RNA sequence: CAAUCCCCAGAUUAACCGUCAUAGAGCCAUUAUUGGCUAGGAACCCUGACAGAGUGAUGGAAAGAACCAUCCACGUGGUAAAGCUAUACCUGGGCACGUCUAAUGUCUUG
Numbered sequence: 001c002a003a004u005c006c007c008c009a010g011a012u013u014a015a016c017c018g019u020c021a022u023a024g025a026g027c028c029a030u031u032a033u034u035g036g037c038u039a040g041g042a043a044c045c046c047u048g049a050c051a052g053a054g055u056g057a058u059g060g061a062a063a064g065a066a067c068c069a070u071c072c073a074c075g076u077g078g079u080a081a082a083g084c085u086a087u088a089c090c091u092g093g094g095c096a097c098g099u100c101u102a103a104u105g106u107c108u109u110g
Stems, first nucleotide, its partner, number of pairs: 006094005018089002021087004025038005045110001048107004056071005073099005
RNA: EGFOA RNA
Organism: Paenibacillus validus